The record is a 183-nucleotide RNA sequence from Lottiidibacillus patelloidae, which matches "Lysine riboswitch aptamer" in Rfam. Its family is annotated with lysine biosynthetic process in the Gene Ontology.
RNA sequence: UGAUGAGGUAGAGGCGCAAUGAAAAUGAGUAAGUGAUGUGAGAAUGACAACGAUGAUCAUCACGGAAAGGUUUCUUUGCCGAAGUGAGUUAGUGGUCCACACUACCUUUGCUGGGGUUGCAUUGAACAAGUGCAACACUGUCAUUACUAAGUUAAGUGUUAGUAAUGAUGCACUACUGAUCAG
Numbered sequence: 001u002g003a004u005g006a007g008g009u010a011g012a013g014g015c016g017c018a019a020u021g022a023a024a025a026u027g028a029g030u031a032a033g034u035g036a037u038g039u040g041a042g043a044a045u046g047a048c049a050a051c052g053a054u055g056a057u058c059a060u061c062a063c064g065g066a067a068a069g070g071u072u073u074c075u076u077u078g079c080c081g082a083a084g085u086g087a088g089u090u091a092g093u094g095g096u097c098c099a100c101a102c103u104a105c106c107u108u109u110g111c112u113g114g115g116g117u118u119g120c121a122u123u124g125a126a127c128a129a130g131u132g133c134a135a136c137a138c139u140g141u142c143a144u145u146a147c148u149a150a151g152u153u154a155a156g157u158g159u160u161a162g163u164a165a166u167g168a169u170g171c172a173c174u175a176c177u178g179a180u181c182a183g
Stems, first nucleotide, its partner, number of pairs: 007177005016079004021074004033063006083112004087107002090104005113139002116136008141168010